[Rfam]
RNA sequence: UACGCGAUGCCGAAACCGGGUCGCGAAUAAAAAACUCGCUGAAAUCAGGAGGCAUAAAUUAUGAGC
Numbered sequence: 001u002a003c004g005c006g007a008u009g010c011c012g013a014a015a016c017c018g019g020g021u022c023g024c025g026a027a028u029a030a031a032a033a034a035c036u037c038g039c040u041g042a043a044a045u046c047a048g049g050a051g052g053c054a055u056a057a058a059u060u061a062u063g064a065g066c
Stems, first nucleotide, its partner, number of pairs: 001027001003025006010019003030055001035051003039048003
A member of the RNA family "Repression of heat shock gene expression (ROSE) element" from Pseudomonas sp. TAD18, 66 nucleotides long. The family's RNA type in Rfam is RNA thermoregulator. NCBI's taxonomy places the organism under Bacteria, Pseudomonadati, Gammaproteobacteria, Pseudomonadaceae, Pseudomonas. On this family, see Krajewski et al., PLoS One 2013: "Short ROSE-Like RNA Thermometers Control IbpA Synthesis in Pseudomonas Species".